A member of the RNA family "Bacterial large signal recognition particle RNA" from Natranaerovirga pectinivora, 262 nucleotides long. Lineage of the source: Bacteria > Bacillati > Clostridia > Natranaerovirgaceae > Natranaerovirga. The base pairs follow the family's consensus structure, which is taken from published work. Rfam links the family to the GO terms SRP-dependent cotranslational protein targeting to membrane, signal sequence recognition and signal recognition particle, plasma membrane targeting. By type it is a non-coding RNA gene.
[Rfam]
RNA sequence: CCGUGCAGCCGGGGAGUCAGCGGUGCCCUGUACCUGCAAUCCGCUAUAGCAGGGGUGAUGUCAAUCCGAGGCUAUCUUCUUGUAAGGCUGCCCUUUAUAAGUGGCGAUGACGAUUGGGUCUUACGCAACAGGAACUUGUGAACCGUGUCAGGUCCGGAAGGAAGCAGCACUAAACAAGUCCCCCUGUGUGCCGUGAGGGUGCCUGAUUUGAGUUAACUGUAAAGGUAACGCUUGUGAGAGUUAGUCGAAGUGCGGCGCACGG
Numbered sequence: 001c002c003g004u005g006c007a008g009c010c011g012g013g014g015a016g017u018c019a020g021c022g023g024u025g026c027c028c029u030g031u032a033c034c035u036g037c038a039a040u041c042c043g044c045u046a047u048a049g050c051a052g053g054g055g056u057g058a059u060g061u062c063a064a065u066c067c068g069a070g071g072c073u074a075u076c077u078u079c080u081u082g083u084a085a086g087g088c089u090g091c092c093c094u095u096u097a098u099a100a101g102u103g104g105c106g107a108u109g110a111c112g113a114u115u116g117g118g119u120c121u122u123a124c125g126c127a128a129c130a131g132g133a134a135c136u137u138g139u140g141a142a143c144c145g146u147g148u149c150a151g152g153u154c155c156g157g158a159a160g161g162a163a164g165c166a167g168c169a170c171u172a173a174a175c176a177a178g179u180c181c182c183c184c185u186g187u188g189u190g191c192c193g194u195g196a197g198g199g200u201g202c203c204u205g206a207u208u209u210g211a212g213u214u215a216a217c218u219g220u221a222a223a224g225g226u227a228a229c230g231c232u233u234g235u236g237a238g239a240g241u242u243a244g245u246c247g248a249a250g251u252g253c254g255g256c257g258c259a260c261g262g
Base pairs, nucleotide, nucleotide: 001262002261003260004259005258006257008056009055010054011029012028013027014026016024017023018022033053034052035051036050037049061255062254066250070246071245072244073243074242077240078239079238080237081236082235083234084233085232086231089227090226093224094223095222096221097220098219101217102216103214104213105212112208113207114206115205116204117203118202119201120197121196122195123194124193125192126188127187129186130185131184132183134179135178136177137176138175139174145170146169147168148167153162154161155160